[Rfam]
RNA sequence: CCGAUUCUGGUUUCAGUCAAGACAAGAUUUUUUUGAGGUAAAGAUAAUCUGGAUAACCCCAUCUUGAUUGAUACCAGAAUCAG
Numbered sequence: 001c002c003g004a005u006u007c008u009g010g011u012u013u014c015a016g017u018c019a020a021g022a023c024a025a026g027a028u029u030u031u032u033u034u035g036a037g038g039u040a041a042a043g044a045u046a047a048u049c050u051g052g053a054u055a056a057c058c059c060c061a062u063c064u065u066g067a068u069u070g071a072u073a074c075c076a077g078a079a080u081c082a083g
Base pairs, nucleotide, nucleotide: 003081004080005079006078008076009075010074011073013071014070015069016068017067018066019065020064021063022062028056029055031053032052033051
Shown here is an 83-nucleotide RNA sequence from Ornithorhynchus anatinus, a member of the family "mir-1422 microRNA precursor family". Taxonomically the source falls in Ornithorhynchus (Eukaryota, Eumetazoa, Deuterostomia, Chordata). Gene Ontology terms of the family: miRNA-mediated post-transcriptional gene silencing and RISC complex. The base pairs follow the family's consensus structure, which was predicted with RNAalifold. The match comes from Rfam's covariance-model search (80 bits).